[Rfam]
RNA: Bacteroides sRNA BTnc049
RNA sequence: ACAGAAAGGGAUUGUGAAAUUCCGAGAAUAGAAUAGUUUAGUUAAGUCUAGUUUAGUUUUUGUGUUGAUAGCUCCCUCGUCGGCGGACGAACAAGGGAGCUAUUUUUAU
Numbered sequence: 001a002c003a004g005a006a007a008g009g010g011a012u013u014g015u016g017a018a019a020u021u022c023c024g025a026g027a028a029u030a031g032a033a034u035a036g037u038u039u040a041g042u043u044a045a046g047u048c049u050a051g052u053u054u055a056g057u058u059u060u061u062g063u064g065u066u067g068a069u070a071g072c073u074c075c076c077u078c079g080u081c082g083g084c085g086g087a088c089g090a091a092c093a094a095g096g097g098a099g100c101u102a103u104u105u106u107u108a109u
Base pairs, nucleotide, nucleotide: 001063002062003061004060005059008023009022010021011020012019013018035054036053038051039050040049041048069102070101071100072099073098074097075096076095077094078089079088080087